[Rfam]
RNA sequence: UUUACAGAGCUAUUUUGACAUUCUGACCGCCUCCAAAAAUGAUAAUAAUUCAUAUGCAACUGCAAGGUAUUAAUUAGCAGCAACUGAUGGAGGUGGACAGAAUGCCAAAGUGGCUAUGCAAU
Numbered sequence: 001u002u003u004a005c006a007g008a009g010c011u012a013u014u015u016u017g018a019c020a021u022u023c024u025g026a027c028c029g030c031c032u033c034c035a036a037a038a039a040u041g042a043u044a045a046u047a048a049u050u051c052a053u054a055u056g057c058a059a060c061u062g063c064a065a066g067g068u069a070u071u072a073a074u075u076a077g078c079a080g081c082a083a084c085u086g087a088u089g090g091a092g093g094u095g096g097a098c099a100g101a102a103u104g105c106c107a108a109a110g111u112g113g114c115u116a117u118g119c120a121a122u
Stems, first nucleotide, its partner, number of pairs: 011112001015108003019104002024099002027096008